[Rfam]
RNA sequence: ACGGUCGCGGGCGACAGCGGCAGGGAUGCCCGCACCACGAGACACAACACCGUGCCACCGGAACAUCGGGGCACUUCAGGGCGUU
Numbered sequence: 001a002c003g004g005u006c007g008c009g010g011g012c013g014a015c016a017g018c019g020g021c022a023g024g025g026a027u028g029c030c031c032g033c034a035c036c037a038c039g040a041g042a043c044a045c046a047a048c049a050c051c052g053u054g055c056c057a058c059c060g061g062a063a064c065a066u067c068g069g070g071g072c073a074c075u076u077c078a079g080g081g082c083g084u085u
Stems, first nucleotide, its partner, number of pairs: 004036001007033007015025001052074005058068001
Dot-bracket structure: ...(..(((((((.(.........).)))))))..)...............(((((.(.........).)))))...........